[Rfam]
RNA sequence: UUAAGUUAGGUUUGUGGUUGAAAGUCGAUGCCAGUCGCAGGCAAAACGAUCCACGUAAGUUAAACAAAGUUUUAAUGAGCAUGGUGCGGCUUAGAAGUAAGUCCUGCCGCUUUAGGCGAGAGUAUUAGUAGUGAGAGGGUAAUUCCGGGUAGCGAAACUUCCAGCAGGCGAGUGUGGGGUCAAAGACCAGGUCAACUAACUUAA
Numbered sequence: 001u002u003a004a005g006u007u008a009g010g011u012u013u014g015u016g017g018u019u020g021a022a023a024g025u026c027g028a029u030g031c032c033a034g035u036c037g038c039a040g041g042c043a044a045a046a047c048g049a050u051c052c053a054c055g056u057a058a059g060u061u062a063a064a065c066a067a068a069g070u071u072u073u074a075a076u077g078a079g080c081a082u083g084g085u086g087c088g089g090c091u092u093a094g095a096a097g098u099a100a101g102u103c104c105u106g107c108c109g110c111u112u113u114a115g116g117c118g119a120g121a122g123u124a125u126u127a128g129u130a131g132u133g134a135g136a137g138g139g140u141a142a143u144u145c146c147g148g149g150u151a152g153c154g155a156a157a158c159u160u161c162c163a164g165c166a167g168g169c170g171a172g173u174g175u176g177g178g179g180u181c182a183a184a185g186a187c188c189a190g191g192u193c194a195a196c197u198a199a200c201u202u203a204a
Base pairs, nucleotide, nucleotide: 001204002203003202004201005200006199007198008197009196012195013194014193015189016188017187018186019185028175029174030173031041033091034090035089036088037087038086039085050084051083058076060074062072063071082182103168104167105166106165107164108118109117110116122161124159131153132152137146138145139144

The record is a 204-nucleotide RNA from Clostridium acetobutylicum, which matches "raiA RNA" in Rfam. The family's consensus secondary structure is taken from published work. It is annotated as a riboswitch. It is one of the family's seed sequences.